RNA sequence: UGAGAUGGAAUCAGCGUUUGGACAUGCAAUGUAAUGCUGAUUCCGUCUCAUG
Dot-bracket structure: ((((((((((((((((((((......)))....)))))))))))))))))..
Source information
Shown here is a 52-nucleotide sequence from Solanum lycopersicum, a member of the family "MIR1886 microRNA precursor family". The base pairs follow the family's consensus structure, which was predicted with RNAalifold.